[Rfam]
This 110-nucleotide RNA from Flagellimonas chongwuensis belongs to the Rfam family "6S-Flavo RNA". Rfam classes the family as a small RNA. The match comes from Rfam's covariance-model search (99 bits).
RNA sequence: ACUCAACACUAAUAUAAUUAGAGAGGGUGAGUUUAGGCUGUAAAAGCAGGCCCUACUUGUAUAGGGAUCCUUGAUCAGCUUGGUAGCCCUAAACCUGUAUUUUGGAGUUU
Numbered sequence: 001a002c003u004c005a006a007c008a009c010u011a012a013u014a015u016a017a018u019u020a021g022a023g024a025g026g027g028u029g030a031g032u033u034u035a036g037g038c039u040g041u042a043a044a045a046g047c048a049g050g051c052c053c054u055a056c057u058u059g060u061a062u063a064g065g066g067a068u069c070c071u072u073g074a075u076c077a078g079c080u081u082g083g084u085a086g087c088c089c090u091a092a093a094c095c096u097g098u099a100u101u102u103u104g105g106a107g108u109u110u
Base pairs, nucleotide, nucleotide: 024090025089026088027087028086035081036080037079038078039077044072045071046070051066052065053064054063